RNA sequence: AAAGAUGGAAGGGGUAUUCAAAGAUUUCCACUCAGGACGAGGGAAGAAUUAACCCUCAAACGAUUAGGACUGUGAUUGCAUCUACACCUAGUCGUUACCGUAGUU
Numbered sequence: 001a002a003a004g005a006u007g008g009a010a011g012g013g014g015u016a017u018u019c020a021a022a023g024a025u026u027u028c029c030a031c032u033c034a035g036g037a038c039g040a041g042g043g044a045a046g047a048a049u050u051a052a053c054c055c056u057c058a059a060a061c062g063a064u065u066a067g068g069a070c071u072g073u074g075a076u077u078g079c080a081u082c083u084a085c086a087c088c089u090a091g092u093c094g095u096u097a098c099c100g101u102a103g104u105u
Stems, first nucleotide, its partner, number of pairs: 004033002006030004010025001039057005059096010071086004
Shown here is a 105-nucleotide RNA sequence, a member of the family "Methylobacterium-1 RNA". By type it is a small RNA.